[Rfam]
RNA: Small nucleolar RNA SNORA15
RNA sequence: GCAUGGGUGAAUUCUGCAUUGGCUUCUUCAGUAGCUAAUGCAGUCAGACACUAUGCUAGAGUAUAUUUCCUCCUCGCUUAUUCCUAAAGAUAUGCUUUGUGUUAAGCAUGUUCAUACAAGUAGGAUACACGA
Numbered sequence: 001g002c003a004u005g006g007g008u009g010a011a012u013u014c015u016g017c018a019u020u021g022g023c024u025u026c027u028u029c030a031g032u033a034g035c036u037a038a039u040g041c042a043g044u045c046a047g048a049c050a051c052u053a054u055g056c057u058a059g060a061g062u063a064u065a066u067u068u069c070c071u072c073c074u075c076g077c078u079u080a081u082u083c084c085u086a087a088a089g090a091u092a093u094g095c096u097u098u099g100u101g102u103u104a105a106g107c108a109u110g111u112u113c114a115u116a117c118a119a120g121u122a123g124g125a126u127a128c129a130c131g132a
Stems, first nucleotide, its partner, number of pairs: 001056006014043006070124002075120001085116002089112009